[Rfam]
RNA sequence: UUCGGUCUGUUCAAACAUGAUUAACUCAGUGAAGAUGGAUUUUUCAGUCCUGCUGAGAUGCGAUGGUAAUGAGAUAGGUUAAUUCGGGAUACUGGAUUAGCUGAUUCUUUCCAGCAGAAGUGAUUCUGCCGGAGGAGACGAACAUCGUCAACAAUACCUUGCAGUGUAUCAUCAUAGAGAAGUCAAAUGCAGAAUCCUUGUGGUCGGCGUAGAAUAGACGCUUGCAGUGCAAGAAUAAUCCGGUGAUGUGAAGAUGGUGUGAGAGACCACAGGCUAGCUGGAAAUCUCAAAUAAGCUGAUUUGCCUUGAAUCUGAGAAAUCAGAGUAUAACACAAGAAAUUCGUUAAAGUAGCGGUAUGGCAAGUUCUUCAAUAAGCAGUUUUUCGAUGUUAGCAUAUGGAAUAAGGAAUGCAAGUAGAAAAAACAUGAUCUGAAAGAACCGUGAAAUUUAUGGGUAUCAAUCCCAUGUGUGCUUUGACCGUGGUAAGAAGCAAAGGGUCGCCCCCGGACGCUCAGACUUAUCAUCACACUGGCAGAAUAUGGCUUCUACCUUGAUGAAUAAGGGGAAACCCUAAUCAUGUUUGAAGAUGUGA
Numbered sequence: 001u002u003c004g005g006u007c008u009g010u011u012c013a014a015a016c017a018u019g020a021u022u023a024a025c026u027c028a029g030u031g032a033a034g035a036u037g038g039a040u041u042u043u044u045c046a047g048u049c050c051u052g053c054u055g056a057g058a059u060g061c062g063a064u065g066g067u068a069a070u071g072a073g074a075u076a077g078g079u080u081a082a083u084u085c086g087g088g089a090u091a092c093u094g095g096a097u098u099a100g101c102u103g104a105u106u107c108u109u110u111c112c113a114g115c116a117g118a119a120g121u122g123a124u125u126c127u128g129c130c131g132g133a134g135g136a137g138a139c140g141a142a143c144a145u146c147g148u149c150a151a152c153a154a155u156a157c158c159u160u161g162c163a164g165u166g167u168a169u170c171a172u173c174a175u176a177g178a179g180a181a182g183u184c185a186a187a188u189g190c191a192g193a194a195u196c197c198u199u200g201u202g203g204u205c206g207g208c209g210u211a212g213a214a215u216a217g218a219c220g221c222u223u224g225c226a227g228u229g230c231a232a233g234a235a236u237a238a239u240c241c242g243g244u245g246a247u248g249u250g251a252a253g254a255u256g257g258u259g260u261g262a263g264a265g266a267c268c269a270c271a272g273g274c275u276a277g278c279u280g281g282a283a284a285u286c287u288c289a290a291a292u293a294a295g296c297u298g299a300u301u302u303g304c305c306u307u308g309a310a311u312c313u314g315a316g317a318a319a320u321c322a323g324a325g326u327a328u329a330a331c332a333c334a335a336g337a338a339a340u341u342c343g344u345u346a347a348a349g350u351a352g353c354g355g356u357a358u359g360g361c362a363a364g365u366u367c368u369u370c371a372a373u374a375a376g377c378a379g380u381u382u383u384u385c386g387a388u389g390u391u392a393g394c395a396u397a398u399g400g401a402a403u404a405a406g407g408a409a410u411g412c413a414a415g416u417a418g419a420a421a422a423a424a425c426a427u428g429a430u431c432u433g434a435a436a437g438a439a440c441c442g443u444g445a446a447a448u449u450u451a452u453g454g455g456u457a458u459c460a461a462u463c464c465c466a467u468g469u470g471u472g473c474u475u476u477g478a479c480c481g482u483g484g485u486a487a488g489a490a491g492c493a494a495a496g497g498g499u500c501g502c503c504c505c506c507g508g509a510c511g512c513u514c515a516g517a518c519u520u521a522u523c524a525u526c527a528c529a530c531u532g533g534c535a536g537a538a539u540a541u542g543g544c545u546u547c548u549a550c551c552u553u554g555a556u557g558a559a560u561a562a563g564g565g566g567a568a569a570c571c572c573u574a575a576u577c578a579u580g581u582u583u584g585a586a587g588a589u590g591u592g593a
Stems, first nucleotide, its partner, number of pairs: 007590001010587002014583002022575001025057005037050005059163005072108003075104001077102001079100009109134004114129006137149005169574001182545001184543001192342004197336006203300006221233004239282006248274002255269003260289004301363005311324005346448001352443005430517004454465002469529003481526001484523001487520002491513001496506003562573004

This 593-nucleotide RNA belongs to the Rfam family "ROOL RNA". About the family: Firmicutes, Fusobacteria (1 example), Tenericutes (1 example).